[Rfam]
A member of the RNA family "skipping-rope RNA", 101 nucleotides long.
RNA sequence: UAGGUUAGAAGUUGAAAAGUAUUAAGUUACGCUGUCCCAACGCGCCAGGCCCUUAAGGGAAGGUGUAAAGAGAUGUGGAGGUGAUAGUCCUACCUAACCUA
Numbered sequence: 001u002a003g004g005u006u007a008g009a010a011g012u013u014g015a016a017a018a019g020u021a022u023u024a025a026g027u028u029a030c031g032c033u034g035u036c037c038c039a040a041c042g043c044g045c046c047a048g049g050c051c052c053u054u055a056a057g058g059g060a061a062g063g064u065g066u067a068a069a070g071a072g073a074u075g076u077g078g079a080g081g082u083g084a085u086a087g088u089c090c091u092a093c094c095u096a097a098c099c100u101a
Stems, first nucleotide, its partner, number of pairs: 001101008011041004032087005043070001044064003075093004
Rfam classes the family as a small RNA.